[Rfam]
About this RNA:
Rfam assigns this 91-nucleotide sequence from Beta vulgaris to the family "small nucleolar RNA snoR114". NCBI's taxonomy places the organism under Eukaryota, Magnoliopsida, Mesangiospermae, eudicotyledons, Beta vulgaris.
RNA sequence: GAGCAGUGAUGACACCUGCGCAUAACGUGGCACUUUAGGGUCCGCCACCAUCUUCUGAUUUACCAGAAGAGAACAAUGUGCAUCUGAGCUU
Numbered sequence: 001g002a003g004c005a006g007u008g009a010u011g012a013c014a015c016c017u018g019c020g021c022a023u024a025a026c027g028u029g030g031c032a033c034u035u036u037a038g039g040g041u042c043c044g045c046c047a048c049c050a051u052c053u054u055c056u057g058a059u060u061u062a063c064c065a066g067a068a069g070a071g072a073a074c075a076a077u078g079u080g081c082a083u084c085u086g087a088g089c090u091u
Base pairs, nucleotide, nucleotide: 001091002090003089004088
Dot-bracket structure: ((((...................................................................................))))

Notes:
The match comes from Rfam's covariance-model search (65 bits). The literature on the family includes a 2009 paper in Nucleic Acids Res by Chen and Wu, "Mining small RNA sequencing data: a new approach to identify small nucleolar RNAs in Arabidopsis". Pairs were carried over by alignment from the consensus structure, which was predicted with RNAalifold.